[Rfam]
RNA sequence: ACAGCAAGCCGUCUUAUCGCUGCUCCGCUUGGAGGAGAGGAAAGUCCGGGCAACACAGAGCAUCCUACUUCCUAACGGGAAGGGGCCUUCCGGGAGACGGGUAGGCUACAGCCAGUGCCACAGAAAAUAACCGCCAGCUGCAAAGCUGGUAAGGGUGAAAAGGUGCGGUAAGAGCGCACCAGCGGCUGGGUGACCAGUCCGGCUGGGUAAACCUUAGGAGUUGAAAGACCAAAUAGGCUGACAGCGCCUCGCUUCGGCGGGGCUAAGGGCUGCUCGUCCGAUGUCAGUGGGUAGGUCGAUGGAGCCUGUGCGCGAGUGCAGGCCUAGAUAAAUGAUAAGACGUUGGGCUUCGGCACAGCGACAGAACCCGGCUUACAGGCUUGCUGUUAAA
Numbered sequence: 001a002c003a004g005c006a007a008g009c010c011g012u013c014u015u016a017u018c019g020c021u022g023c024u025c026c027g028c029u030u031g032g033a034g035g036a037g038a039g040g041a042a043a044g045u046c047c048g049g050g051c052a053a054c055a056c057a058g059a060g061c062a063u064c065c066u067a068c069u070u071c072c073u074a075a076c077g078g079g080a081a082g083g084g085g086c087c088u089u090c091c092g093g094g095a096g097a098c099g100g101g102u103a104g105g106c107u108a109c110a111g112c113c114a115g116u117g118c119c120a121c122a123g124a125a126a127a128u129a130a131c132c133g134c135c136a137g138c139u140g141c142a143a144a145g146c147u148g149g150u151a152a153g154g155g156u157g158a159a160a161a162g163g164u165g166c167g168g169u170a171a172g173a174g175c176g177c178a179c180c181a182g183c184g185g186c187u188g189g190g191u192g193a194c195c196a197g198u199c200c201g202g203c204u205g206g207g208u209a210a211a212c213c214u215u216a217g218g219a220g221u222u223g224a225a226a227g228a229c230c231a232a233a234u235a236g237g238c239u240g241a242c243a244g245c246g247c248c249u250c251g252c253u254u255c256g257g258c259g260g261g262g263c264u265a266a267g268g269g270c271u272g273c274u275c276g277u278c279c280g281a282u283g284u285c286a287g288u289g290g291g292u293a294g295g296u297c298g299a300u301g302g303a304g305c306c307u308g309u310g311c312g313c314g315a316g317u318g319c320a321g322g323c324c325u326a327g328a329u330a331a332a333u334g335a336u337a338a339g340a341c342g343u344u345g346g347g348c349u350u351c352g353g354c355a356c357a358g359c360g361a362c363a364g365a366a367c368c369c370g371g372c373u374u375a376c377a378g379g380c381u382u383g384c385u386g387u388u389a390a391a
Stems, first nucleotide, its partner, number of pairs: 001387010011376001012340007020037002023034004042374003046371005051223004058275004063219005068082005083109001084107004110214002115212002117208003131154002133150007162180006182203001183201003186197004227297004237288006267279004304323008
Overview: Bacterial RNase P class A: a 391-nucleotide RNA from Pontibacter lucknowensis. NCBI's taxonomy places the organism under Bacteria, Pseudomonadati, Cytophagia, Hymenobacteraceae, Pontibacter. The family's consensus secondary structure is taken from published work.